The family of this 133-nucleotide sequence from Upupa epops is "Small nucleolar RNA SNORA17".
RNA sequence: CCUGCCACAGGCGUUGCAGAGGUGGCUGCUGUGGCACCUUUGUGUCAUUAGGUGGCAGAGAAAGACAGGCUAUCUACUACGCUCGUUUGUUCUGCAGCCCGUGAACACUCAGAGUGACUGAUAGCCUGACAUG
Numbered sequence: 001c002c003u004g005c006c007a008c009a010g011g012c013g014u015u016g017c018a019g020a021g022g023u024g025g026c027u028g029c030u031g032u033g034g035c036a037c038c039u040u041u042g043u044g045u046c047a048u049u050a051g052g053u054g055g056c057a058g059a060g061a062a063a064g065a066c067a068g069g070c071u072a073u074c075u076a077c078u079a080c081g082c083u084c085g086u087u088u089g090u091u092c093u094g095c096a097g098c099c100c101g102u103g104a105a106c107a108c109u110c111a112g113a114g115u116g117a118c119u120g121a122u123a124g125c126c127u128g129a130c131a132u133g
Stems, first nucleotide, its partner, number of pairs: 002058005007049001010046003016043004021038004026033001064130001066128008080116002083113002086111001088107005

Clan: SNORA17 clan. From the family's description: snoRNA ACA 17 belongs to the H/ACA family of snoRNAs and is predicted to guide pseudouridylation of the 28S rRNA at positions U4659 and U4598. It shares the same host gene together with ACA43. NB This family has a high threshold value to exclude a large number of closely related sequences that do not appear to have conserved H and ACA boxes, and may be pseudogenes. The base pairs follow the family's consensus structure, which was predicted with RNAalifold.